[Rfam]
RNA: L31-Gammaproteobacteria ribosomal protein leader
RNA sequence: CGUAUGGUACUUUGUUGAAUGAAAUGAUUCAUUCAAGCAGAGCAGCGAUACGGCCCAAUAGAGGU
Numbered sequence: 001c002g003u004a005u006g007g008u009a010c011u012u013u014g015u016u017g018a019a020u021g022a023a024a025u026g027a028u029u030c031a032u033u034c035a036a037g038c039a040g041a042g043c044a045g046c047g048a049u050a051c052g053g054c055c056c057a058a059u060a061g062a063g064g065u
Base pairs, nucleotide, nucleotide: 001052002051003050004049005048007046008045011041012040013039014038015037016036